[Rfam]
RNA sequence: CUGAAUUGUGAGCUCCGAGCUUGGUAGUCUAAGGCAGUGCUAUGACGGCCAAGCCGAUAGGGUUUAAUGGGAAACCAUUAAGCCUCCCGUGUGGAAAGGAGUAUAGUAGUAAACCUU
Numbered sequence: 001c002u003g004a005a006u007u008g009u010g011a012g013c014u015c016c017g018a019g020c021u022u023g024g025u026a027g028u029c030u031a032a033g034g035c036a037g038u039g040c041u042a043u044g045a046c047g048g049c050c051a052a053g054c055c056g057a058u059a060g061g062g063u064u065u066a067a068u069g070g071g072a073a074a075c076c077a078u079u080a081a082g083c084c085u086c087c088c089g090u091g092u093g094g095a096a097a098g099g100a101g102u103a104u105a106g107u108a109g110u111a112a113a114c115c116u117u
Base pairs, nucleotide, nucleotide: 004110006108012102013101014100015099016098019054020053021052022051023050024049025048027046028045029044033041034040035039060085061084062083063082064081065080066079067078068077069076070075086094087093
The record is a 117-nucleotide RNA sequence from Desulforamulus hydrothermalis, which matches "Molybdenum/Tungsten riboswitch aptamer (Moco RNA motif)" in Rfam. Gene Ontology terms of the family: regulation of gene expression, molybdenum ion binding and tungstate binding. The match comes from Rfam's covariance-model search (82 bits). For this family Rfam cites "in molybdenum cofactor and tungsten cofactor metabolism" (Regulski et al., Mol Microbiol, 2008). Pairs were carried over by alignment from the consensus structure, which is taken from published work.